Description:
The record is a 118-nucleotide RNA sequence from Cytobacillus dafuensis, which matches "RNA Staph. aureus E (RoxS)" in Rfam. It was shown to be regulated by the presence of nitric oxide (NO). Its family is annotated with regulation of translational initiation in the Gene Ontology. The match comes from Rfam's covariance-model search (97 bits). Taxonomically the source falls in Cytobacillus (Bacteria, Bacillati, Bacilli, Caryophanales). By type it is a small RNA.
[Rfam]
RNA sequence: AUGAAGUUGAUCACAAACAAACACUUACCCCUUGUUUGACCGUGAAAAAUUUCUCCCAUCCCCUUUUUUUUCGUGUAUAGAAGAAAGACCAUGCUAUUUAAUUUAGCAUGGUCUUUCU
Numbered sequence: 001a002u003g004a005a006g007u008u009g010a011u012c013a014c015a016a017a018c019a020a021a022c023a024c025u026u027a028c029c030c031c032u033u034g035u036u037u038g039a040c041c042g043u044g045a046a047a048a049a050u051u052u053c054u055c056c057c058a059u060c061c062c063c064u065u066u067u068u069u070u071u072c073g074u075g076u077a078u079a080g081a082a083g084a085a086a087g088a089c090c091a092u093g094c095u096a097u098u099u100a101a102u103u104u105a106g107c108a109u110g111g112u113c114u115u116u117c118u
Stems, first nucleotide, its partner, number of pairs: 003053006011045004018038006069081001071079001085115011